[Rfam]
Nucleotides: 138
Stems, first nucleotide, its partner, number of pairs: 002019006027068005032059012083096005098124003108115002
Number, partner (000 for none) and nucleotide at each position: 001000c002019u003018a004017g005016a006015u007014g008000u009000a010000c011000u012000c013000u014007c015006a016005u017004c018003u019002g020000a021000g022000u023000c024000u025000a026000g027068a028067u029066g030065a031064a032059c033058a034057u035056g036055c037054u038053a039052a040051a041050u042049u043048g044000g045000u046000a047000a048043c049042g050041a051040u052039u053038u054037a055036g056035u057034g058033u059032g060000a061000a062000g063000c064031u065030u066029c067028a068027u069000u070000g071000a072000c073000a074000a075000u076000g077000c078000u079000u080000u081000g082000a083096u084095u085094a086093a087092u088000a089000a090000g091000u092087a093086u094085u095084a096083a097000g098124g099123u100122u101000a102000u103000u104000a105000a106000a107000u108115a109114u110000g111000c112000a113000a114109a115108u116000a117000a118000u119000c120000a121000g122100a123099g124098u125000u126000a127000g128000a129000c130000u131000g132000u133000g134000a135000g136000a137000u138000a